[Rfam]
Nucleotides: 065
Base pairs, nucleotide, nucleotide: 004060005059006058007057010022012020013019025055027053028052
Number, partner (000 for none) and nucleotide at each position: 001000a002000u003000g004060g005059a006058g007057a008000c009000a010022u011000g012020g013019c014000a015000u016000a017000a018000a019013g020012c021000a022010g023000g024000a025055g026000a027053c028052a029000c030000u031000a032000g033000g034000c035000u036000c037000u038000c039000a040000a041000c042000u043000u044000g045000a046000c047000c048000u049000g050000a051000u052028u053027g054000g055025c056000a057007u058006c059005u060004c061000a062000u063000u064000u065000u
The family of this 65-nucleotide RNA from Chrysemys picta is "ctgf/hcs24 CAESAR". On this family, see Kubota et al., FEBS Lett 1999: "Involvement of cis-acting repressive element(s) in the 3'-untranslated region of human connective tissue growth factor gene". The organism belongs to Chrysemys picta, within Eukaryota. The family has 9 seed sequences and 518 matches in Rfam 15.1. The 3' UTR of human connective tissue growth factor/hypertrophic chondrocyte specific 24 (ctgf/hcs24) mRNA has been shown to repress ctgf gene expression. Reference identified a minimal RNA element, predicted to form a stable secondary structure, which acts as a post-transcriptional cis-acting element of structure-anchored repression (CAESAR), probably through direct interactions with as yet unknown nuclear factors. Gene Ontology term of the family: negative regulation of gene expression.